[Rfam]
RNA sequence: CUCAGAUACGGUGACAUGGUGCCGAAGACAAUAGCUGGAAAGAUUUUUGGUUCAAUAUGCUCUCUGAGCGGGGUCUUGGUCAUCGCUCUGCCAGUUCCUGUAAUUGUCUCCAAC
Dot-bracket structure: .(..(..((((..(((.((.((..............((.(........((...........))..........).))................)))).)))..))))..)..).
Shown here is a 114-nucleotide sequence from Falco tinnunculus, a member of the family "Potassium channel RNA editing signal".
The match comes from Rfam's covariance-model search (84 bits).
NCBI's taxonomy places the organism under Eukaryota, Sarcopterygii, Sauria, Archelosauria, Falco.
Pairs were carried over by alignment from the consensus structure, which is taken from published work.